[Rfam]
Nucleotides: 068
Base pairs, nucleotide, nucleotide: 010026011025012024013023016059017058018057019056020055034049035048036047037046
Number, partner (000 for none) and nucleotide at each position: 001000g002000u003000g004000c005000u006000u007000g008000a009000g010026g011025g012024a013023g014000a015000u016059g017058g018057c019056a020055u021000a022000c023013c024012u025011c026010c027000u028000c029000a030000a031000a032000c033000c034049g035048c036047c037046g038000g039000c040000g041000u042000u043000g044000u045000c046037c047036g048035g049034c050000u051000a052000a053000u054000g055020a056019u057018g058017c059016c060000u061000a062000c063000g064000g065000u066000u067000c068000c
Fluoride riboswitch aptamer (crcB RNA motif): a 68-nucleotide sequence from Paraburkholderia caffeinitolerans. A search with the family's covariance model found it, with a score of 50 bits.